[Rfam]
RNA sequence: GGAUUGAUGAUCACUCUCAUACAUAUAUUCCCUGGAAAGCUGAACAGAAGGAAUGAAAAAUCAAUACUGUCAUUCUCGUAGGACUGAGGCCA
Dot-bracket structure: .(.((....................(((((.(((..........)))...)))))................................)).).
RNA: Small nucleolar RNA SNORD116